[Rfam]
RNA sequence: GAAACGGGAACCCGGCACGGCUCCGGCCGGCAAGACCGGGGGUGCCUCACCGCAAGGCGAGGCGGCA
Numbered sequence: 001g002a003a004a005c006g007g008g009a010a011c012c013c014g015g016c017a018c019g020g021c022u023c024c025g026g027c028c029g030g031c032a033a034g035a036c037c038g039g040g041g042g043u044g045c046c047u048c049a050c051c052g053c054a055a056g057g058c059g060a061g062g063c064g065g066c067a
Base pairs, nucleotide, nucleotide: 011040012039013038014037015036018029019028020027021026044063045062046061047060048059050057051056
The family of this 67-nucleotide sequence from Frankia sp. QA3 is "Transposase-2 RNA".
Rfam's curators put it in the seed alignment.
It is annotated as a small RNA.
The family has 151 seed sequences and 214 matches in Rfam 15.1.
Pairs were carried over by alignment from the consensus structure, which is taken from published work.